[Rfam]
RNA sequence: AUUCCAGAGGUGGUGCCUAGCACCACUCCGGCAGCAAGCGAAGGUGUCAUUGACACCCGUGGUAUAGUCCCCCCGGCUAUACCACGAUAUUUUUUU
Numbered sequence: 001a002u003u004c005c006a007g008a009g010g011u012g013g014u015g016c017c018u019a020g021c022a023c024c025a026c027u028c029c030g031g032c033a034g035c036a037a038g039c040g041a042a043g044g045u046g047u048c049a050u051u052g053a054c055a056c057c058c059g060u061g062g063u064a065u066a067g068u069c070c071c072c073c074c075g076g077c078u079a080u081a082c083c084a085c086g087a088u089a090u091u092u093u094u095u096u
Stems, first nucleotide, its partner, number of pairs: 009027008031039002043057006058086012
Rfam assigns this 96-nucleotide sequence from Vibrio renipiscarius to the family "Translational regulator of tfoXVC".
By type it is a small RNA.
Pairs were carried over by alignment from the consensus structure, which was predicted with WAR.